[Rfam]
RNA sequence: GGCAGUUUUGAUGAUGUUACUUCUUUUAUUUUAAGAAGACAUCAGAAAAAUCUGUGCU
Numbered sequence: 001g002g003c004a005g006u007u008u009u010g011a012u013g014a015u016g017u018u019a020c021u022u023c024u025u026u027u028a029u030u031u032u033a034a035g036a037a038g039a040c041a042u043c044a045g046a047a048a049a050a051u052c053u054g055u056g057c058u
Stems, first nucleotide, its partner, number of pairs: 002055004006050004012044006020038006
This 58-nucleotide RNA sequence from Menidia menidia belongs to the Rfam family "mir-723 microRNA precursor family". Rfam 15.1 lists 207 matches to the family in 103 species.